[Rfam]
RNA sequence: CCCGAGGGAUCGGGACGACAUGUGGGCCGGCGUCGAACGUCGCCCGAAUCGCAAG
Numbered sequence: 001c002c003c004g005a006g007g008g009a010u011c012g013g014g015a016c017g018a019c020a021u022g023u024g025g026g027c028c029g030g031c032g033u034c035g036a037a038c039g040u041c042g043c044c045c046g047a048a049u050c051g052c053a054a055g
Base pairs, nucleotide, nucleotide: 001014002013003012004011005010016051017050018049024045025044026043027042
Rfam assigns this 55-nucleotide RNA from Halobellus clavatus to the family "eL15-Euryarchaeota ribosomal protein leader".
The family's RNA type in Rfam is cis-regulatory leader.
A reference for the family is Eckert and Weinberg (2020), "Discovery of 20 novel ribosomal leader candidates in bacteria and archaea", BMC Microbiol.